[Rfam]
RNA sequence: UCAAGCACAUCUCCUUAUCACUUUUCCAGCCCAGCUAUCUGACAAACGUUUGUUGGACGGAGAACUGAUAAGGGUAUGUGCCUGG
Numbered sequence: 001u002c003a004a005g006c007a008c009a010u011c012u013c014c015u016u017a018u019c020a021c022u023u024u025u026c027c028a029g030c031c032c033a034g035c036u037a038u039c040u041g042a043c044a045a046a047c048g049u050u051u052g053u054u055g056g057a058c059g060g061a062g063a064a065c066u067g068a069u070a071a072g073g074g075u076a077u078g079u080g081c082c083u084g085g
Stems, first nucleotide, its partner, number of pairs: 012074009022064006030056002
The family of this 85-nucleotide RNA sequence from Oryzias latipes is "mir-184 microRNA precursor family". Pairs were carried over by alignment from the consensus structure, which was predicted with PFOLD. NCBI's taxonomy places the organism under Eukaryota, Gnathostomata, Ctenosquamata, Adrianichthyoidei, Oryzias. The family has 66 seed sequences and 948 matches in Rfam 15.1. The sequence is in the family's curated seed alignment.